[Rfam]
RNA sequence: AUCAUAUGAGUGUAUGGACUUCAAGUGCAACCUAAGUAUUAACUUAUCUUAACACGUCCUUAUGUAAUUCGUGCAUUACUGCUAGUCAACACGGAUAUUAUAUA
Numbered sequence: 001a002u003c004a005u006a007u008g009a010g011u012g013u014a015u016g017g018a019c020u021u022c023a024a025g026u027g028c029a030a031c032c033u034a035a036g037u038a039u040u041a042a043c044u045u046a047u048c049u050u051a052a053c054a055c056g057u058c059c060u061u062a063u064g065u066a067a068u069u070c071g072u073g074c075a076u077u078a079c080u081g082c083u084a085g086u087c088a089a090c091a092c093g094g095a096u097a098u099u100a101u102a103u104a
Stems, first nucleotide, its partner, number of pairs: 005095001007093002010090002012087001016082001017079001021035001023033001025031002036057002039052004062076005
Rfam assigns this 104-nucleotide RNA from Macaca nemestrina to the family "Mitochondrial DNA control region secondary structure A". It is annotated as an antisense RNA. On this family, see Pereira et al., Mol Biol Evol 2008: "Evidence for variable selective pressures at a large secondary structure of the human mitochondrial DNA control region". It scores 63 bits against the family's covariance model.